[Rfam]
RNA: Rhizobiales sRNA Atu_At1
Organism: Devosia sp. A8/3-2
RNA sequence: AGAUCACGCGCGUCAACCGGACGUGGCGGCAAGGGAAACAGUGCGAUUUUUCCGGUUUCUCGCACUGGCCAACGAAACGGCACACGAGUCCAUAUCCCGCCCGCGCU
Numbered sequence: 001a002g003a004u005c006a007c008g009c010g011c012g013u014c015a016a017c018c019g020g021a022c023g024u025g026g027c028g029g030c031a032a033g034g035g036a037a038a039c040a041g042u043g044c045g046a047u048u049u050u051u052c053c054g055g056u057u058u059c060u061c062g063c064a065c066u067g068g069c070c071a072a073c074g075a076a077a078c079g080g081c082a083c084a085c086g087a088g089u090c091c092a093u094a095u096c097c098c099g100c101c102c103g104c105g106c107u
Stems, first nucleotide, its partner, number of pairs: 007105003011023004025101005034091003039067007068081003